[Rfam]
RNA sequence: GCUGGGCAACAUAGCGAGACCUCAACUCUACAAUUUUUUUUUUUUUAAUUUUAGAGACGGGGUCUUGCUCUGUUGCCAGGCUUU
Number, nucleotide and partner (000 for none) at each position: 001g081002c080003u079004g000005g077006g076007c075008a074009a073010c072011a071012u000013a069014g068015c067016g066017a065018g064019a063020c062021c061022u060023c059024a000025a000026c056027u055028c054029u053030a052031c000032a050033a049034u048035u047036u000037u000038u000039u000040u000041u000042u000043u000044u000045u000046u000047a035048a034049u033050u032051u000052u030053a029054g028055a027056g026057a000058c000059g023060g022061g021062g020063u019064c018065u017066u016067g015068c014069u013070c000071u011072g010073u009074u008075g007076c006077c005078a000079g003080g002081c001082u000083u000084u000